[Rfam]
RNA sequence: GUUGUCGUAAGGCGGGGUCUGAAGGAAGCUGUAAGCAAAGUGCCGGCCUGACGAACAGGAAGCGCAUAAGAGGCAGUCGCAUCAGGGCAAGGGGGCCCAUUUACCCAAAGCCCGAUAUCACCCGGAUGAUGCGGCUGUAGAUGCGACAGGUAUAUGGCAUGAAGGUCACGCGUC
Numbered sequence: 001g002u003u004g005u006c007g008u009a010a011g012g013c014g015g016g017g018u019c020u021g022a023a024g025g026a027a028g029c030u031g032u033a034a035g036c037a038a039a040g041u042g043c044c045g046g047c048c049u050g051a052c053g054a055a056c057a058g059g060a061a062g063c064g065c066a067u068a069a070g071a072g073g074c075a076g077u078c079g080c081a082u083c084a085g086g087g088c089a090a091g092g093g094g095g096c097c098c099a100u101u102u103a104c105c106c107a108a109a110g111c112c113c114g115a116u117a118u119c120a121c122c123c124g125g126a127u128g129a130u131g132c133g134g135c136u137g138u139a140g141a142u143g144c145g146a147c148a149g150g151u152a153u154a155u156g157g158c159a160u161g162a163a164g165g166u167c168a169c170g171c172g173u174c
Base pairs, nucleotide, nucleotide: 002015003014004013005012006011028174030172031171032170035166036165040160041159042158043157044156045155046151047150048149049148050147063145064144065143066142067141073138074137075136077134078133079132080131081130082129083128085113086112087111088110091106092105093104
Background
The record is a 174-nucleotide RNA from Brucella anthropi, which matches "Group II catalytic intron D1-D4-3" in Rfam. Rfam's curators write: Group II introns are found in rRNA, tRNA and mRNA of organelles in fungi, plants and protists, and also in mRNA in bacteria. NCBI's taxonomy places the organism under Bacteria, Alphaproteobacteria, Hyphomicrobiales, Brucella, Brucella anthropi.